[Rfam]
Nucleotides: 102
Stems, first nucleotide, its partner, number of pairs: 019087007029049002033045003058078007
Number, partner (000 for none) and nucleotide at each position: 001000g002000c003000c004000c005000c006000g007000c008000a009000a010000g011000c012000a013000a014000u015000g016000u017000g018000a019087c020086g021085u022084u023083g024082u025081a026000u027000a028000a029049u030048u031000u032000u033045g034044g035043c036000a037000a038000u039000a040000u041000g042000g043035g044034c045033c046000u047000u048030a049029a050000g051000u052000c053000u054000c055000u056000a057000c058078u059077c060076u061075g062074a063073a064072a065000c066000c067000g068000u069000a070000a071000a072064u073063u074062u075061c076060a077059g078058a079000c080000c081025u082024a083023c084022a085021a086020u087019g088000a089000a090000g091000c092000a093000g094000g095000a096000u097000a098000a099000u100000u101000g102000u